RNA: c-di-GMP-I-GGC riboswitch aptamer
RNA sequence: UCAGACAAAGCCAAACCACCUGCGAAGGUGGGACGGAAAGCUGCGGGUCUCUCAGGGGCGAAAGCUACAGAUCCAUGUAGUGAGAGAUGGCCGGGUUGCCGAUU
Numbered sequence: 001u002c003a004g005a006c007a008a009a010g011c012c013a014a015a016c017c018a019c020c021u022g023c024g025a026a027g028g029u030g031g032g033a034c035g036g037a038a039a040g041c042u043g044c045g046g047g048u049c050u051c052u053c054a055g056g057g058g059c060g061a062a063a064g065c066u067a068c069a070g071a072u073c074c075a076u077g078u079a080g081u082g083a084g085a086g087a088u089g090g091c092c093g094g095g096u097u098g099c100c101g102a103u104u
Stems, first nucleotide, its partner, number of pairs: 004100001011036002016031006034090001039097004044093003047088008